[Rfam]
RNA sequence: GUUCAUCUUCAGGGCAGGGUGGAAUUCCCGACCGGCGGUAAAGUCCGCGACCCGCGUGAGCGGUUGAUUCGGUGUAACUCCGAAACCGACAGUAAAGUCUGGUAUGCAGAAGAUGAGA
Numbered sequence: 001g002u003u004c005a006u007c008u009u010c011a012g013g014g015c016a017g018g019g020u021g022g023a024a025u026u027c028c029c030g031a032c033c034g035g036c037g038g039u040a041a042a043g044u045c046c047g048c049g050a051c052c053c054g055c056g057u058g059a060g061c062g063g064u065u066g067a068u069u070c071g072g073u074g075u076a077a078c079u080c081c082g083a084a085a086c087c088g089a090c091a092g093u094a095a096a097g098u099c100u101g102g103u104a105u106g107c108a109g110a111a112g113a114u115g116a117g118a
Stems, first nucleotide, its partner, number of pairs: 003116008017029003031098002033088002035048004043086002052063002068084005090101003
About this RNA: Shown here is a 118-nucleotide sequence from Levilactobacillus brevis, a member of the family "FMN riboswitch aptamer (RFN element)". For this family Rfam cites "An mRNA structure that controls gene expression by binding FMN" (Winkler et al., Proc Natl Acad Sci U S A, 2002). It scores 112 bits against the family's covariance model. Lineage of the source: Bacteria > Bacillati > Bacillota > Lactobacillales > Levilactobacillus brevis. Pairs were carried over by alignment from the consensus structure, which is taken from published work.